[Rfam]
RNA sequence: GAUUCGAUAGUAUGAUAGAAAGAAAUCUAUUUCUUUAUUUCUUUCUAUCAUAAUAUCCUUUAUUUGUUAUUCUAGUGUAUAAAGUUGUACUU
Numbered sequence: 001g002a003u004u005c006g007a008u009a010g011u012a013u014g015a016u017a018g019a020a021a022g023a024a025a026u027c028u029a030u031u032u033c034u035u036u037a038u039u040u041c042u043u044u045c046u047a048u049c050a051u052a053a054u055a056u057c058c059u060u061u062a063u064u065u066g067u068u069a070u071u072c073u074a075g076u077g078u079a080u081a082a083a084g085u086u087g088u089a090c091u092u
Stems, first nucleotide, its partner, number of pairs: 006057004011052016

The family of this 92-nucleotide RNA from Hevea brasiliensis is "Plastid-psbM 3UTR RNA". The organism belongs to Hevea, within Eukaryota. The match comes from Rfam's covariance-model search (64 bits). From the family's description: Plastid psbM is a non-coding RNA (ncRNA) recognised in plastids.